Shown here is an 80-nucleotide sequence from Ptilonorhynchus violaceus, a member of the family "Small nucleolar RNA SNORD72".
RNA sequence: AGUUGUUAAUAAUGUUUCUCUUUAAAAAGGUCUGAAUGUAUGAACUCUGUAGUGAUUUCCAUGAAUUACUGAAAUAAGCU
Numbered sequence: 001a002g003u004u005g006u007u008a009a010u011a012a013u014g015u016u017u018c019u020c021u022u023u024a025a026a027a028a029g030g031u032c033u034g035a036a037u038g039u040a041u042g043a044a045c046u047c048u049g050u051a052g053u054g055a056u057u058u059c060c061a062u063g064a065a066u067u068a069c070u071g072a073a074a075u076a077a078g079c080u
Stems, first nucleotide, its partner, number of pairs: 002079001003077005

Rfam links the family to the GO terms nucleolus and RNA processing. The match comes from Rfam's covariance-model search (46 bits). Rfam describes the family as follows. snoRNA HBII-240 belongs to the CD family of snoRNAs. By type it is a C/D-box small nucleolar RNA. The source organism's lineage runs through Eukaryota, Eumetazoa, Gnathostomata, Dinosauria and Ptilonorhynchus. The base pairs follow the family's consensus structure. The literature on the family includes a 2001 paper in EMBO J by Huttenhofer et al., "RNomics: an experimental approach that identifies 201 candidates for novel, small, non-messenger RNAs in mouse".